[Rfam]
The family of this 105-nucleotide RNA from Piliocolobus tephrosceles is "Mitochondrial DNA control region secondary structure A".
RNA sequence: CAUAUGGAAGGAUGCCAAGAUUUAACUGUAACUUAAGUGCUAAUUUAUUUGAACAUACUCUUAUGUAAGUCGUGCAUUACUGCUAGCCAACAUGAAUAUUAUAUA
Dot-bracket structure: (((.(((......((..((..((((.(...).))))((..(...........)...))....(((((.....)))))..))))...)).).)))...........
A search with the family's covariance model found it, with a score of 55 bits.
The family's consensus secondary structure is taken from published work.
It is annotated as an antisense RNA.